[Rfam]
RNA: c-di-AMP riboswitch aptamer (ydaO/yuaA leader)
RNA sequence: ACUCGAGGAUCACAGCGGACGGGAGCGGGGGAACCAAGGUCAGCGCCCGGCCGUACGCUCCCGCGUGCGCGCCGCGGCUUGGGGUGAAGCCGCCACAUCCGGCGGCCGGGCAUCCUCAGCCCGAACCCGACAGCUCACCUCGCAGGCGUCGCAGAGGACAUCC
Dot-bracket structure: ..((..................))((((((....((((.......................................))))(((.....((((........))))..((((.......))))...))).........))))))....................